[Rfam]
RNA sequence: AGUGACUGUGCAACCUACAAAAUAACAAUCCCCUCGCCUUUUACUAGGGGAUUCCGUGUAGGUUGUACAUUGAAAGUCACAUACUAAAUAUUUGGGAACUCCUUGUCUUCUUCGUGAGAU
Numbered sequence: 001a002g003u004g005a006c007u008g009u010g011c012a013a014c015c016u017a018c019a020a021a022a023u024a025a026c027a028a029u030c031c032c033c034u035c036g037c038c039u040u041u042u043a044c045u046a047g048g049g050g051a052u053u054c055c056g057u058g059u060a061g062g063u064u065g066u067a068c069a070u071u072g073a074a075a076g077u078c079a080c081a082u083a084c085u086a087a088a089u090a091u092u093u094g095g096g097a098a099c100u101c102c103u104u105g106u107c108u109u110c111u112u113c114g115u116g117a118g119a120u
Stems, first nucleotide, its partner, number of pairs: 003079004009067011027053008096120001102118005